[Rfam]
About this RNA: A member of the RNA family "Ribosomal protein L20 leader" from Xylanibacillus composti, 134 nucleotides long. A reference for the family is Zengel and Lindahl (1994), "Diverse mechanisms for regulating ribosomal protein synthesis in Escherichia coli", Prog Nucleic Acid Res Mol Biol. NCBI's taxonomy places the organism under Bacteria, Bacilli, Caryophanales, Paenibacillaceae, Xylanibacillus. From the family's description: This family is a putative r-protein leader autoregulatory structure found in B. subtilis and other low-GC Gram-positive bacteria.
RNA sequence: GGUUCUAAGCAGAAGCGCCCGCUUCUCACCUGACCGGCAGCGAAGCCGGCUGGUUACUGGUGAAUUGGUUCGUAUUGCAACAGCGAACAGGAGACAAGGAUGUGGGCAUUUUGUGCCCGCAUCUUUUUUUUCGU
Numbered sequence: 001g002g003u004u005c006u007a008a009g010c011a012g013a014a015g016c017g018c019c020c021g022c023u024u025c026u027c028a029c030c031u032g033a034c035c036g037g038c039a040g041c042g043a044a045g046c047c048g049g050c051u052g053g054u055u056a057c058u059g060g061u062g063a064a065u066u067g068g069u070u071c072g073u074a075u076u077g078c079a080a081c082a083g084c085g086a087a088c089a090g091g092a093g094a095c096a097a098g099g100a101u102g103u104g105g106g107c108a109u110u111u112u113g114u115g116c117c118c119g120c121a122u123c124u125u126u127u128u129u130u131u132c133g134u
Stems, first nucleotide, its partner, number of pairs: 011026006028054003034049005101121009